[Rfam]
RNA: mir-8196 microRNA precursor family
Organism: Caenorhabditis elegans
Nucleotides: 065
Stems, first nucleotide, its partner, number of pairs: 001063004006058002008055003012051003017046005023040005
Number, partner (000 for none) and nucleotide at each position: 001063c002062c003061c004060a005000u006058a007057g008055a009054a010053a011000u012051a013050u014049u015000u016000u017046c018045u019044a020043u021042g022000u023040c024039a025038a026037c027036c028000u029000c030000u031000u032000g033000u034000a035000c036027g037026g038025u039024u040023g041000c042021u043020g044019u045018a046017g047000u048000u049014a050013a051012u052000u053010u054009u055008u056000u057007c058006u059000u060004u061003g062002g063001g064000a065000a